[Rfam]
A member of the RNA family "Makes More Granules Regulator RNA (mmgR)" from Lichenibacterium minor, 81 nucleotides long. The literature on the family includes a 2005 paper in Genome Biol by Corbino et al., "Evidence for a second class of S-adenosylmethionine riboswitches and other regulatory RNA motifs in alpha-proteobacteria". The organism belongs to Lichenibacterium, within Bacteria. Rfam classes the family as a small RNA.
RNA sequence: GGGCGCCGCCCCUCGUGGGCGUUUCCUCCCUAGACUUGGGCCGCUCGCCGCGAGGCUGGGCGGCCUCUUUCGUUCUGCCCA
Numbered sequence: 001g002g003g004c005g006c007c008g009c010c011c012c013u014c015g016u017g018g019g020c021g022u023u024u025c026c027u028c029c030c031u032a033g034a035c036u037u038g039g040g041c042c043g044c045u046c047g048c049c050g051c052g053a054g055g056c057u058g059g060g061c062g063g064c065c066u067c068u069u070u071c072g073u074u075c076u077g078c079c080c081a
Stems, first nucleotide, its partner, number of pairs: 008020004038066009